RNA sequence: GACUCGCUAGCUCAGCUGGUAGAGCACAUCCCUUUUAAGGAUGGGGUCUUGGGUUCGAACCCCAAGCGAGUCA
Numbered sequence: 001g002a003c004u005c006g007c008u009a010g011c012u013c014a015g016c017u018g019g020u021a022g023a024g025c026a027c028a029u030c031c032c033u034u035u036u037a038a039g040g041a042u043g044g045g046g047u048c049u050u051g052g053g054u055u056c057g058a059a060c061c062c063c064a065a066g067c068g069a070g071u072c073a
Base pairs, nucleotide, nucleotide: 001072002071003070004069005068006067007066010025011024012023013022027043028042029041030040031039049065050064051063052062053061
This 73-nucleotide RNA from Marivirga aurantiaca belongs to the Rfam family "tRNA".
Lineage of the source: Bacteria > Pseudomonadati > Bacteroidota > Cytophagales > Marivirga.
Rfam classes the family as a transfer RNA.